The family of this 117-nucleotide sequence from Cettia cetti is "U5 spliceosomal RNA". U5 RNA is a component of both types of known spliceosome. The source organism's lineage runs through Eukaryota, Metazoa, Dipnotetrapodomorpha, Neoaves and Cettia. A reference for the family is Thomas et al. (1990), "The spliceosomal snRNAs of Caenorhabditis elegans", Nucleic Acids Res. The family's consensus secondary structure is taken from published work.
RNA sequence: AUAUUCUGGUUUCUCUUCAGAUCGUAUAAAUCGCCUUUUACUAAAGAUUUCCGUAGAGAGGAACAAGUCAUAGGAAAAUGUGGCUCCAUUACGGUGGAGCUAACCAUUUAUGGCUAA
Numbered sequence: 001a002u003a004u005u006c007u008g009g010u011u012u013c014u015c016u017u018c019a020g021a022u023c024g025u026a027u028a029a030a031u032c033g034c035c036u037u038u039u040a041c042u043a044a045a046g047a048u049u050u051c052c053g054u055a056g057a058g059a060g061g062a063a064c065a066a067g068u069c070a071u072a073g074g075a076a077a078a079u080g081u082g083g084c085u086c087c088a089u090u091a092c093g094g095u096g097g098a099g100c101u102a103a104c105c106a107u108u109u110a111u112g113g114c115u116a117a
Base pairs, nucleotide, nucleotide: 004076005075006074009064010063011062012061013060014059015058016057017056019054028050029049030048031047032046095117098115099114100113101112102111